[Rfam]
RNA sequence: UGUCGAAGUUCCAUCUAUAAAUGGAUAAGACUUCUUCUGUUUUUAGUUAGACGAGUUUUUUACAAAUAAAGGAGCAAUAUGAACCUCUUUAUAAAACAAGAGGUUCAUAUUGCUCCUUUAUU
Numbered sequence: 001u002g003u004c005g006a007a008g009u010u011c012c013a014u015c016u017a018u019a020a021a022u023g024g025a026u027a028a029g030a031c032u033u034c035u036u037c038u039g040u041u042u043u044u045a046g047u048u049a050g051a052c053g054a055g056u057u058u059u060u061u062a063c064a065a066a067u068a069a070a071g072g073a074g075c076a077a078u079a080u081g082a083a084c085c086u087c088u089u090u091a092u093a094a095a096a097c098a099a100g101a102g103g104u105u106c107a108u109a110u111u112g113c114u115c116c117u118u119u120a121u122u
Base pairs, nucleotide, nucleotide: 010025011024012023013022014021068119069118070117071116072115073114074113075112076111077110078109079108080107082105083104085102086101087100088099089098

Source information:
A member of the RNA family "Plastid-psbA-1 3UTR RNA" from Saxifraga stolonifera, 122 nucleotides long. Rfam's curators write: Plastid psbA-1 is a non-coding RNA (ncRNA) present in plastids. It was identified in inverted repeat sequences in the 3 prime untranslate region (3UTR) of photosystem II quinone-binding protein (psbA). Its Rfam clan is "Plastid-psbA 3UTR RNA clan". By type it is a cis-regulatory element. The base pairs follow the family's consensus structure, which was predicted with LocARNA.